[Rfam]
RNA sequence: UUGCGCUCUCAUUUAUAUAGGGCUUCGCUAAAUUACCAAUUAGUGCAGUCUUUAUAGCGAUUAGUGCAUAAAUAAAAAGCUGAGUUUAUCAGUAGGCGGCCAGACAACCGUUGAGAUGAAUCCACAGAUAGCUUCUAAUUUGUUUCUGUCUACUAAUUUCAUCUCAAAUUA
Numbered sequence: 001u002u003g004c005g006c007u008c009u010c011a012u013u014u015a016u017a018u019a020g021g022g023c024u025u026c027g028c029u030a031a032a033u034u035a036c037c038a039a040u041u042a043g044u045g046c047a048g049u050c051u052u053u054a055u056a057g058c059g060a061u062u063a064g065u066g067c068a069u070a071a072a073u074a075a076a077a078a079g080c081u082g083a084g085u086u087u088a089u090c091a092g093u094a095g096g097c098g099g100c101c102a103g104a105c106a107a108c109c110g111u112u113g114a115g116a117u118g119a120a121u122c123c124a125c126a127g128a129u130a131g132c133u134u135c136u137a138a139u140u141u142g143u144u145u146c147u148g149u150c151u152a153c154u155a156a157u158u159u160c161a162u163c164u165c166a167a168a169u170u171a
Base pairs, nucleotide, nucleotide: 002068003067004066005065006064012060013059016056017055018054019053020052021050022049023048024047026045027044028043029042030041113165114164115163116162117161118160119159120158131147

The record is a 171-nucleotide RNA from Anisodus acutangulus, which matches "small nucleolar RNA snoR143" in Rfam. A search with the family's covariance model found it, with a score of 103 bits. Rfam 15.1 lists 660 matches to the family in 212 species. On this family, see Chen and Wu, Nucleic Acids Res 2009: "Mining small RNA sequencing data: a new approach to identify small nucleolar RNAs in Arabidopsis". The family's consensus secondary structure was predicted with RNAalifold.